Shown here is a 152-nucleotide RNA sequence from Klebsiella ornithinolytica, a member of the family "EFASI RNA". Rfam's curators put it in the seed alignment. Rfam classes the family as a small RNA. Lineage of the source: Bacteria > Pseudomonadati > Gammaproteobacteria > Klebsiella > Klebsiella ornithinolytica.
[Rfam]
RNA sequence: UUGACUCGGUAUCGAUGGCAACAUCAGUGAAAGCUGAUGUAUGGAGGUAGUCUGACUAACGUCAGGACGGCAUACGCCGCGAACAGCUCUGCGAGCUGGGGAACCUCGUAAAAACUCAACAUAUUGUCACCCCGAUGCACAGAUACCCGUCG
Numbered sequence: 001u002u003g004a005c006u007c008g009g010u011a012u013c014g015a016u017g018g019c020a021a022c023a024u025c026a027g028u029g030a031a032a033g034c035u036g037a038u039g040u041a042u043g044g045a046g047g048u049a050g051u052c053u054g055a056c057u058a059a060c061g062u063c064a065g066g067a068c069g070g071c072a073u074a075c076g077c078c079g080c081g082a083a084c085a086g087c088u089c090u091g092c093g094a095g096c097u098g099g100g101g102a103a104c105c106u107c108g109u110a111a112a113a114a115c116u117c118a119a120c121a122u123a124u125u126g127u128c129a130c131c132c133c134g135a136u137g138c139a140c141a142g143a144u145a146c147c148c149g150u151c152g
Stems, first nucleotide, its partner, number of pairs: 002152004008147006019043002021040007044107004052065005084099001085097005
Dot-bracket structure: .((((..((((((.....(((((((((......))))))).))((((....(((((....)))))..................((((((...))))).)....))))..................................)))))).))))